[Rfam]
Nucleotides: 113
Base pairs, nucleotide, nucleotide: 001109002108003107004106006104007103010101011100015096016092017091018090019089020088021087044074047071048070
Number, partner (000 for none) and nucleotide at each position: 001109g002108g003107u004106c005000u006104g007103u008000c009000c010101a011100a012000a013000g014000u015096u016092a017091g018090u019089g020088a021087g022000u023000u024000a025000u026000c027000u028000c029000a030000a031000u032000u033000g034000a035000u036000u037000g038000u039000u040000c041000a042000c043000a044074g045000u046000c047071a048070g049000u050000u051000a052000c053000a054000g055000a056000u057000c058000a059000a060000a061000c062000a063000c064000c065000u066000u067000g068000u069000u070048c071047u072000a073000c074044u075000c076000u077000u078000u079000c080000u081000c082000u083000c084000c085000c086000u087021c088020u089019c090018a091017c092016u093000a094000c095000c096015a097000c098000a099000c100011u101010u102000a103007a104006c105000u106004g107003g108002u109001c110000u111000u112000a113000a

Notes
The record is a 113-nucleotide RNA sequence from Saimiri boliviensis, which matches "Y RNA" in Rfam. Y RNAs are components of the Ro ribonucleoprotein particle (Ro RNP), in association with Ro60 and La proteins.